mraW RNA: a 99-nucleotide sequence from Cryobacterium psychrotolerans. Taxonomically the source falls in Cryobacterium (Bacteria, Bacillati, Actinomycetota, Actinomycetes). The family's RNA type in Rfam is cis-regulatory element.

[Rfam]
RNA sequence: UCUAGCCCCUGGCGCCUGACUCCCAGCCGUUCAUGCCUGACACACUUCCCCGGUGCCAGGAAAGAAUGGAUGGGGAUCAGGCACCAGGGACCAGGACCC
Numbered sequence: 001u002c003u004a005g006c007c008c009c010u011g012g013c014g015c016c017u018g019a020c021u022c023c024c025a026g027c028c029g030u031u032c033a034u035g036c037c038u039g040a041c042a043c044a045c046u047u048c049c050c051c052g053g054u055g056c057c058a059g060g061a062a063a064g065a066a067u068g069g070a071u072g073g074g075g076a077u078c079a080g081g082c083a084c085c086a087g088g089g090a091c092c093a094g095g096a097c098c099c
Base pairs, nucleotide, nucleotide: 010086011085012084014082015081016080018078019077021075022074023073024072025071027069028068029067030066031065032064034062036060037059038058039057041055042054043053
The base pairs follow the family's consensus structure, which is taken from published work.